[Rfam]
Source information
This 62-nucleotide RNA from Trichormus azollae belongs to the Rfam family "Nitrogen stress-induced RNA 1". The family has 17 seed sequences and 962 matches in Rfam 15.1. For this family Rfam cites "Heterocyst-specific transcription of NsiR1, a non-coding RNA encoded in a tandem array of direct repeats in cyanobacteria" (Ionescu et al., J Mol Biol, 2010).
RNA sequence: UAGUAGAUGCACCCUGAUAACUAAUCUCCCCUAGUGGGCUAACACCACUAGGGCUUUUUUGC
Numbered sequence: 001u002a003g004u005a006g007a008u009g010c011a012c013c014c015u016g017a018u019a020a021c022u023a024a025u026c027u028c029c030c031c032u033a034g035u036g037g038g039c040u041a042a043c044a045c046c047a048c049u050a051g052g053g054c055u056u057u058u059u060u061g062c
Base pairs, nucleotide, nucleotide: 003012004011029053030052031051032050033049034048035047037046038045